[Rfam]
RNA sequence: UAUGUCCGUGCACCUGUUUUUCUUUCGCUUCUUUUUUGCAUCCUGACCCGGGAGGCAAGGUCUUACGAGAAACAAGCGAAAGACGAACAGCCAAGCCUCCCACCGGGAGGCUUUUUUUAU
Numbered sequence: 001u002a003u004g005u006c007c008g009u010g011c012a013c014c015u016g017u018u019u020u021u022c023u024u025u026c027g028c029u030u031c032u033u034u035u036u037u038g039c040a041u042c043c044u045g046a047c048c049c050g051g052g053a054g055g056c057a058a059g060g061u062c063u064u065a066c067g068a069g070a071a072a073c074a075a076g077c078g079a080a081a082g083a084c085g086a087a088c089a090g091c092c093a094a095g096c097c098u099c100c101c102a103c104c105g106g107g108a109g110g111c112u113u114u115u116u117u118u119a120u
Stems, first nucleotide, its partner, number of pairs: 016088004021083010032072003036068003042051002054062003093113009
RNA: Phenylalanine leader peptide
Organism: Oceanimonas sp. GK1